Rfam assigns this 87-nucleotide sequence from Bos grunniens to the family "Small nucleolar RNA SNORD35". Rfam 15.1 lists 1,842 matches to the family in 634 species. The family's consensus secondary structure was predicted with PFOLD. U35 is a C/D box snoRNA located in intron 6 of ribosomal protein L13A and intron 3 of ribosomal protein S11 in humans and at homologous positions in mouse and chicken ribosomal protein genes. U35 guides the methylation of 2'-O-ribose sites in 28S rRNA. The organism belongs to Bos, within Eukaryota. On this family, see Nicoloso et al., J Mol Biol 1996: "Intron-encoded, antisense small nucleolar RNAs: the characterization of nine novel species points to their direct role as guides for the 2'-O-ribose methylation of rRNAs".

RNA sequence: GGUAGAUGAUGGCUUUUUCUCACAAUGGUCUGUGGAUGCCACUCUGGGCAGUGCCGAUCAUGCAAACAGCUCAGUUGAUGCCAGGAA
Numbered sequence: 001g002g003u004a005g006a007u008g009a010u011g012g013c014u015u016u017u018u019c020u021c022a023c024a025a026u027g028g029u030c031u032g033u034g035g036a037u038g039c040c041a042c043u044c045u046g047g048g049c050a051g052u053g054c055c056g057a058u059c060a061u062g063c064a065a066a067c068a069g070c071u072c073a074g075u076u077g078a079u080g081c082c083a084g085g086a087a
Stems, first nucleotide, its partner, number of pairs: 001082004